This 86-nucleotide RNA sequence from Erwinia tasmaniensis belongs to the Rfam family "TrxA 5' UTR thermometer". It scores 61 bits against the family's covariance model. The pairing is the family consensus, mapped onto this sequence. Lineage of the source: Bacteria > Pseudomonadota > Gammaproteobacteria > Erwiniaceae > Erwinia. The family's RNA type in Rfam is RNA thermoregulator.
RNA sequence: AGCCUGAUGCUGCUUAACGCGACAUCACAAGGUAAAGAUAAUCUCCUGGAGUAAACAUGAGCGAUAAAAUUGUUCACCUGACCGAU
Number, nucleotide and partner (000 for none) at each position: 001a000002g000003c000004c000005u000006g000007a000008u066009g065010c000011u063012g062013c000014u060015u059016a058017a000018c000019g000020c000021g000022a052023c051024a000025u049026c048027a047028c000029a000030a000031g044032g043033u000034a000035a000036a000037g000038a000039u000040a000041a000042u000043c032044u031045c000046c000047u027048g026049g025050a000051g023052u022053a000054a000055a000056c000057a000058u016059g015060a014061g000062c012063g011064a000065u009066a008067a000068a000069a000070u085071u084072g083073u000074u081075c080076a000077c000078c000079u000080g075081a074082c000083c072084g071085a070086u000